[Rfam]
This 46-nucleotide RNA sequence from Chthoniobacter flavus belongs to the Rfam family "Acido-Lenti-1 RNA". NCBI's taxonomy places the organism under Bacteria, Pseudomonadati, Chthoniobacterales, Chthoniobacteraceae, Chthoniobacter flavus.
RNA sequence: CCGGUGGCUCACGCCACCGGCUAAUUUAUGGUGCCCCUCCGGGGCA
Numbered sequence: 001c002c003g004g005u006g007g008c009u010c011a012c013g014c015c016a017c018c019g020g021c022u023a024a025u026u027u028a029u030g031g032u033g034c035c036c037c038u039c040c041g042g043g044g045c046a
Stems, first nucleotide, its partner, number of pairs: 001020008033045005
By type it is a small RNA. Rfam 15.1 lists 2,607 matches to the family in 171 species.